[Rfam]
RNA sequence: UACACCAAUCCUUUACUCGGAUCGUCCGGCACGUUCCUGCCGGUGGAGGGACACACAG
Numbered sequence: 001u002a003c004a005c006c007a008a009u010c011c012u013u014u015a016c017u018c019g020g021a022u023c024g025u026c027c028g029g030c031a032c033g034u035u036c037c038u039g040c041c042g043g044u045g046g047a048g049g050g051a052c053a054c055a056c057a058g
Stems, first nucleotide, its partner, number of pairs: 009050007026043006
The record is a 58-nucleotide RNA from Streptomyces inusitatus, which matches "msiK RNA" in Rfam. Rfam classes the family as a cis-regulatory element. The match comes from Rfam's covariance-model search (49 bits).